The record is a 111-nucleotide RNA sequence from Comamonas suwonensis, which matches "Glycine riboswitch aptamer" in Rfam. The match comes from Rfam's covariance-model search (55 bits). The family is grouped with related families in Rfam's "Glycine riboswitch clan". Pairs were carried over by alignment from the consensus structure. The organism belongs to Comamonas, within Bacteria.

RNA sequence: UUGUCCUCGUCAGGAGAGAGUGCUCACAGCUUCACGCUGCAACGUACCGCCGAAGGCGCAGACACCCCACCCGGUGCCCAAACGCUCAGGCAAAAGGACUGACGACCGCUG
Numbered sequence: 001u002u003g004u005c006c007u008c009g010u011c012a013g014g015a016g017a018g019a020g021u022g023c024u025c026a027c028a029g030c031u032u033c034a035c036g037c038u039g040c041a042a043c044g045u046a047c048c049g050c051c052g053a054a055g056g057c058g059c060a061g062a063c064a065c066c067c068c069a070c071c072c073g074g075u076g077c078c079c080a081a082a083c084g085c086u087c088a089g090g091c092a093a094a095a096g097g098a099c100u101g102a103c104g105a106c107c108g109c110u111g
Base pairs, nucleotide, nucleotide: 007105008104009103010102011101012100013099020047021046022045023044049091050090051089052087053086056085057084058083